[Rfam]
Annotation: Rfam assigns this 77-nucleotide RNA sequence from Alligator mississippiensis to the family "Mammalian CPEB3 ribozyme". About the family: The mammalian CPEB3 ribozyme is a self cleaving RNA located in the second intron of the CPEB3 gene which belongs to a family of genes regulating messenger RNA polyadenylation. This ribozyme is highly conserved and found only in mammals. The base pairs follow the family's consensus structure, which is taken from published work.
RNA sequence: CAACUACCAUAAUGGCCAUAGCAGAAGCAUUCAUGUUGUGGCCCUGUCAGAGUCCAAUGAAUCUGCUAAAUUCUGCU
Number, nucleotide and partner (000 for none) at each position: 001c000002a000003a000004c000005u000006a000007c000008c000009a000010u000011a000012a000013u000014g043015g042016c041017c040018a000019u000020a077021g076022c075023a074024g073025a072026a071027g039028c038029a037030u000031u000032c000033a000034u000035g000036u000037u029038g028039u027040g017041g016042c015043c014044c000045u000046g000047u000048c065049a064050g063051a062052g000053u060054c059055c000056a000057a000058u000059g054060a053061a000062u051063c050064u049065g048066c000067u000068a000069a000070a000071u026072u025073c024074u023075g022076c021077u020